[Rfam]
A member of the RNA family "Lysine riboswitch aptamer" from Ferrimonas aestuarii, 177 nucleotides long. The base pairs follow the family's consensus structure, which is taken from published work.

RNA sequence: AGGGCCAGAAGAGGUGCGUUACCCAGGCAGUUUUGACGAGAGCGUCGACGCUCAGUGAGCCAAAAUCAGGGGGAGUAACGCCGAGAGGGAGCCGGUGGUCGAUCGCCCAUCCCUCGGUUGAUAGGGCUGAAUCCCUAUGACUGUCACCUAAGGAUGUGGUGGAGAGCUUCUGGUCGA
Numbered sequence: 001a002g003g004g005c006c007a008g009a010a011g012a013g014g015u016g017c018g019u020u021a022c023c024c025a026g027g028c029a030g031u032u033u034u035g036a037c038g039a040g041a042g043c044g045u046c047g048a049c050g051c052u053c054a055g056u057g058a059g060c061c062a063a064a065a066u067c068a069g070g071g072g073g074a075g076u077a078a079c080g081c082c083g084a085g086a087g088g089g090a091g092c093c094g095g096u097g098g099u100c101g102a103u104c105g106c107c108c109a110u111c112c113c114u115c116g117g118u119u120g121a122u123a124g125g126g127c128u129g130a131a132u133c134c135c136u137a138u139g140a141c142u143g144u145c146a147c148c149u150a151a152g153g154a155u156g157u158g159g160u161g162g163a164g165a166g167c168u169u170c171u172g173g174u175c176g177a
Stems, first nucleotide, its partner, number of pairs: 006172006016081007024073001030066006037059001085115006116142004121138006144162005
Rfam describes the family as follows. Riboswitches are metabolite binding domains within certain messenger RNAs that serve as precision sensors for their corresponding targets. The organism belongs to Ferrimonas, within Bacteria. A search with the family's covariance model found it, with a score of 81 bits.